[Rfam]
RNA sequence: ACGCUCCUUCGUUAGGCGCGGCGCGCUCACGAACAUAGGUCAUUGCCUCGGCCCGUCGAAAGACGCUCAGGGGUAUACAGCAUUCCUCGGCUUAAGGGGUAUGCCAAGAUGACUGCGACGUUGUCGCUACGUUGUGGGCGGGCUUAAGCUCAACUAGGGGGGAUGCG
Number, nucleotide and partner (000 for none) at each position: 001a000002c000003g000004c000005u163006c162007c161008u160009u159010c158011g154012u153013u095014a000015g150016g149017c148018g000019c000020g144021g143022c142023g000024c000025g139026c138027u137028c136029a135030c134031g133032a132033a000034c000035a000036u000037a000038g000039g113040u112041c111042a110043u109044u000045g074046c073047c072048u071049c070050g000051g000052c000053c000054c065055g064056u063057c062058g000059a000060a000061a000062g057063a056064c055065g054066c000067u000068c000069a000070g049071g048072g047073g046074u045075a000076u000077a000078c000079a000080g104081c103082a102083u101084u000085c000086c098087u097088c096089g000090g000091c000092u000093u000094a000095a013096g088097g087098g086099g000100u000101a083102u082103g081104c080105c000106a000107a000108g000109a043110u042111g041112a040113c039114u000115g127116c126117g125118a000119c000120g000121u000122u000123g000124u000125c117126g116127c115128u000129a000130c000131g000132u032133u031134g030135u029136g028137g027138g026139c025140g000141g000142g022143c021144u020145u000146a000147a000148g017149c016150u015151c000152a000153a012154c011155u000156a000157g000158g010159g009160g008161g007162g006163a005164u000165g000166c000167g000
Record summary: M-box riboswitch aptamer (ykoK leader): a 167-nucleotide RNA sequence from Candidatus Viridilinea mediisalina. Pairs were carried over by alignment from the consensus structure. Rfam 15.1 lists 1,095 matches to the family in 932 species.